[Rfam]
RNA sequence: CGCAAAAAGGGCAAACCAGUCGAAAGGCUGGGGCGCAAAGCUUCCGGCCUACCGCAUGUAACCCAUGCCACGGCAGCGGGGCCGCCGCAG
Number, nucleotide and partner (000 for none) at each position: 001c090002g000003c087004a000005a000006a000007a000008a000009g000010g000011g036012c035013a000014a000015a000016c031017c030018a029019g028020u027021c026022g000023a000024a000025a000026g021027g020028c019029u018030g017031g016032g000033g000034c076035g012036c011037a000038a000039a000040g082041c081042u080043u000044c079045c078046g077047g074048c073049c072050u000051a000052c000053c000054g000055c000056a000057u000058g000059u000060a000061a000062c000063c000064c000065a000066u000067g000068c000069c000070a000071c000072g049073g048074c047075a000076g034077c046078g045079g044080g042081g041082c040083c000084g000085c000086c000087g003088c000089a000090g001

A member of the RNA family "c-di-GMP-I-GGC riboswitch aptamer" from Roseateles depolymerans, 90 nucleotides long. Pairs were carried over by alignment from the consensus structure, which is taken from published work. The literature on the family includes a 2010 paper in Biochemistry by Smith et al., "Structural and biochemical determinants of ligand binding by the c-di-GMP riboswitch ". Gene Ontology term of the family: cyclic-di-GMP binding. The organism belongs to Roseateles, within Bacteria.